This 172-nucleotide RNA sequence from Paenibacillus stellifer belongs to the Rfam family "Group II catalytic intron D1-D4-3". A search with the family's covariance model found it, with a score of 84 bits. Rfam 15.1 lists 4,274 matches to the family in 1,585 species. Rfam links the family to the GO term Group II intron splicing. Group II introns are found in rRNA, tRNA and mRNA of organelles in fungi, plants and protists, and also in mRNA in bacteria. Pairs were carried over by alignment from the consensus structure.

RNA sequence: UCCGUCGCGAGGCGGAGUCGGGAGGAAGCUGGAGGCAAACGCUCGACCCAAGGUACACGAACCUAAUUGAGGCUGUAUGAGCCGGAUGAGUCUGCCAAACAAGACGAAGUUCCCAAGCCGCCAAGGGCUCAUACAGUACGGUGUCCGUGCUUCCGGCUGAAGAGGAGACGGC
Numbered sequence: 001u002c003c004g005u006c007g008c009g010a011g012g013c014g015g016a017g018u019c020g021g022g023a024g025g026a027a028g029c030u031g032g033a034g035g036c037a038a039a040c041g042c043u044c045g046a047c048c049c050a051a052g053g054u055a056c057a058c059g060a061a062c063c064u065a066a067u068u069g070a071g072g073c074u075g076u077a078u079g080a081g082c083c084g085g086a087u088g089a090g091u092c093u094g095c096c097a098a099a100c101a102a103g104a105c106g107a108a109g110u111u112c113c114c115a116a117g118c119c120g121c122c123a124a125g126g127g128c129u130c131a132u133a134c135a136g137u138a139c140g141g142u143g144u145c146c147g148u149g150c151u152u153c154c155g156g157c158u159g160a161a162g163a164g165g166a167g168a169c170g171g172c
Base pairs, nucleotide, nucleotide: 001016002015003014004013005012006011028172029171030170031169036164040159041158043156044155045154049143050142062141063140072137073136074135076133077132078131079130080129081128082127084112085111086110087109090105091104092103093102